[Rfam]
RNA: Group II catalytic intron D1-D4-1
RNA sequence: CUAUUGGUUAAGUGAUUAAUCAAGAGGGGAUAAGAGAAGUCAGCAGAAGGCGUAUUAGGCUGAGUUAAUCAGCUGAAGGCC
Numbered sequence: 001c002u003a004u005u006g007g008u009u010a011a012g013u014g015a016u017u018a019a020u021c022a023a024g025a026g027g028g029g030a031u032a033a034g035a036g037a038a039g040u041c042a043g044c045a046g047a048a049g050g051c052g053u054a055u056u057a058g059g060c061u062g063a064g065u066u067a068a069u070c071a072g073c074u075g076a077a078g079g080c081c
Base pairs, nucleotide, nucleotide: 001027002026004023005022006021007020008019009018010017011016040047041046049081050080051079058074059073060072061071062070063069